[Rfam]
RNA sequence: UGCUGCUCAUUCAACUGGUUAUGAUGGUAUGGUGAAGGUCAAUAUCAUGCUCAUAACGCCCCGAAUGAUGCCGAAAGAUAAGGUGCCUAUCGUCCAGCUUUAUUGAUAACUGCCUUUGGGCUUUAUCACACAUCGGGCGACACGUUGAGUGAGGCACCGCCUA
Dot-bracket structure: ....((((((((......((((((..(((..................)))))))))......)))))).))..........(((((((..(((((........((((((.............))))))......))))).(((.....)))))))))).....

This 163-nucleotide RNA from Dickeya dadantii belongs to the Rfam family "Glm Y RNA activator of glmS mRNA".
Pairs were carried over by alignment from the consensus structure, which is taken from published work.
The source organism's lineage runs through Bacteria, Pseudomonadati, Pseudomonadota, Dickeya and Dickeya dadantii.
The family's RNA type in Rfam is small RNA.
Rfam describes the family as follows. This family consists of a number of bacterial RNA genes of around 167 bases in length. The tke1 RNA gene is present in Escherichia coli, Shigella flexneri, Yersinia pestis and Salmonella species where it is found between the yfhK and purL genes. The function of this RNA is unknown.
On this family, see Reichenbach et al., Nucleic Acids Res 2008: "The small RNA GlmY acts upstream of the sRNA GlmZ in the activation of glmS expression and is subject to regulation by polyadenylation in Escherichia coli".